The family of this 99-nucleotide RNA from Vibrio genomosp. F6 is "TPP riboswitch aptamer (THI element)".
Vitamin B(1) in its active form thiamin pyrophosphate (TPP) is an essential coenzyme that is synthesised by coupling of pyrimidine and thiazole moieties in bacteria.
Taxonomically the source falls in Vibrio genomosp. F6 (Bacteria, Pseudomonadota, Vibrionaceae, Vibrio).
[Rfam]
RNA sequence: CUUACAUAGUCGGGGGGCCAUUAGGCUGAGAUCGCAAUUGCGAGACCCGUUGAACCUGAUUCAGUUAACACUGGCGUAGGGAACUAUAGUCUUGCUAAU
Numbered sequence: 001c002u003u004a005c006a007u008a009g010u011c012g013g014g015g016g017g018c019c020a021u022u023a024g025g026c027u028g029a030g031a032u033c034g035c036a037a038u039u040g041c042g043a044g045a046c047c048c049g050u051u052g053a054a055c056c057u058g059a060u061u062c063a064g065u066u067a068a069c070a071c072u073g074g075c076g077u078a079g080g081g082a083a084c085u086a087u088a089g090u091c092u093u094g095c096u097a098a099u
Stems, first nucleotide, its partner, number of pairs: 006087005011049004017026003033042003055080004061074004